[Rfam]
RNA: tRNA
Organism: Zymoseptoria brevis
RNA sequence: GACGUGUUAACUCAAUGGUAGAGUGUUGUACUACGGAUACGAUGGUUGCAGGUUCGAGUCUUGCACGCGUCU
Dot-bracket structure: (((((((..((((.......)))).(((((.......))))).....(((((.......)))))))))))).
Numbered sequence: 001g002a003c004g005u006g007u008u009a010a011c012u013c014a015a016u017g018g019u020a021g022a023g024u025g026u027u028g029u030a031c032u033a034c035g036g037a038u039a040c041g042a043u044g045g046u047u048g049c050a051g052g053u054u055c056g057a058g059u060c061u062u063g064c065a066c067g068c069g070u071c072u
Stems, first nucleotide, its partner, number of pairs: 001071007010024004026042005048064005